[Rfam]
RNA sequence: CUGAUCGUACGAUGAAGGGAGCAUCCGUUGACAGUCAGAAAUGACGAGCUGUCAUGGAGUUGCUCUCUUUACCGAGAAGGUC
Numbered sequence: 001c002u003g004a005u006c007g008u009a010c011g012a013u014g015a016a017g018g019g020a021g022c023a024u025c026c027g028u029u030g031a032c033a034g035u036c037a038g039a040a041a042u043g044a045c046g047a048g049c050u051g052u053c054a055u056g057g058a059g060u061u062g063c064u065c066u067c068u069u070u071a072c073c074g075a076g077a078a079g080g081u082c
Base pairs, nucleotide, nucleotide: 014070015069016068017067018066020064021063022062024058025057026056027055030053031052032051034049035048
This 82-nucleotide sequence from Magallana gigas belongs to the Rfam family "mir-46/mir-47/mir-281 microRNA precursor family". The base pairs follow the family's consensus structure, which was predicted with RNAalifold. On this family, see Lau et al., Science 2001: "An abundant class of tiny RNAs with probable regulatory roles in Caenorhabditis elegans". Rfam links the family to the GO terms RISC complex and miRNA-mediated post-transcriptional gene silencing. A search with the family's covariance model found it, with a score of 58 bits.